[Rfam]
The record is an 87-nucleotide RNA sequence from Dethiobacter alkaliphilus, which matches "c-di-GMP-I riboswitch aptamer" in Rfam. Rfam links the family to the GO term cyclic-di-GMP binding. Taxonomically the source falls in Dethiobacter alkaliphilus (Bacteria, Bacillota, Dethiobacteria, Dethiobacteraceae).
RNA sequence: AUUCGCUCAGGGCAAACCUGUUGAAAGGCAGGGACGCAAAGCCAAGGGUCUAACACUGCAAAGCAGUCAUGACAGCCGGUUGCCGAA
Numbered sequence: 001a002u003u004c005g006c007u008c009a010g011g012g013c014a015a016a017c018c019u020g021u022u023g024a025a026a027g028g029c030a031g032g033g034a035c036g037c038a039a040a041g042c043c044a045a046g047g048g049u050c051u052a053a054c055a056c057u058g059c060a061a062a063g064c065a066g067u068c069a070u071g072a073c074a075g076c077c078g079g080u081u082g083c084c085g086a087a
Base pairs, nucleotide, nucleotide: 012037013036017032018031019030020029021028022027040081041080042079043078046077047076048073049072050071055067056066057065058064